A member of the RNA family "Purine riboswitch aptamer" from Clostridium paridis, 98 nucleotides long. Gene Ontology term of the family: purine nucleobase biosynthetic process.
RNA sequence: AUAACUUGAAAACAGUUAGCUCGUAUAUACUUGGGAUAUGGCCAGGAGUUUCUACCGGAAACCGUAAAUUUCCGACUAUGGGUGAAUUAAUAUGUAGA
Numbered sequence: 001a002u003a004a005c006u007u008g009a010a011a012a013c014a015g016u017u018a019g020c021u022c023g024u025a026u027a028u029a030c031u032u033g034g035g036a037u038a039u040g041g042c043c044a045g046g047a048g049u050u051u052c053u054a055c056c057g058g059a060a061a062c063c064g065u066a067a068a069u070u071u072c073c074g075a076c077u078a079u080g081g082g083u084g085a086a087u088u089a090a091u092a093u094g095u096a097g098a
Base pairs, nucleotide, nucleotide: 019083020082021081022080023079024078025077030046031045032044033043034042056074057073058072059071060070061069